The family of this 61-nucleotide RNA sequence from Macaca mulatta is "U7 small nuclear RNA".
RNA sequence: AAGUGUUGCAGCUCUUUUAGAAUUUGUCUAGCUGGUUUUACAGGUUUUACCAGAAACCUCU
Numbered sequence: 001a002a003g004u005g006u007u008g009c010a011g012c013u014c015u016u017u018u019a020g021a022a023u024u025u026g027u028c029u030a031g032c033u034g035g036u037u038u039u040a041c042a043g044g045u046u047u048u049a050c051c052a053g054a055a056a057c058c059u060c061u
Stems, first nucleotide, its partner, number of pairs: 034058005041053001043051003
Dot-bracket structure: .................................(((((..(.(((...))).))))))...

The family has 49 seed sequences and 10,439 matches in Rfam 15.1. It scores 54 bits against the family's covariance model.